[Rfam]
RNA sequence: AAAUAUCUUCAGGGCAGGGUGUAAUUCCCGAUCGGCGGUAUAGUCCGCGAACGUUGUACAGGCGUUGAUUUGGUGCAAUUCCAAAACCGACAGUAUAGUCUGGAUGAAAGAAGAUAUGA
Numbered sequence: 001a002a003a004u005a006u007c008u009u010c011a012g013g014g015c016a017g018g019g020u021g022u023a024a025u026u027c028c029c030g031a032u033c034g035g036c037g038g039u040a041u042a043g044u045c046c047g048c049g050a051a052c053g054u055u056g057u058a059c060a061g062g063c064g065u066u067g068a069u070u071u072g073g074u075g076c077a078a079u080u081c082c083a084a085a086a087c088c089g090a091c092a093g094u095a096u097a098g099u100c101u102g103g104a105u106g107a108a109a110g111a112a113g114a115u116a117u118g119a
Stems, first nucleotide, its partner, number of pairs: 003117008017029003031099002033089002035048004043087002051065003069085005091102003

The family of this 119-nucleotide sequence from Megasphaera vaginalis is "FMN riboswitch aptamer (RFN element)". The family's consensus secondary structure is taken from published work. Lineage of the source: Bacteria > Bacillota > Negativicutes > Veillonellales > Megasphaera.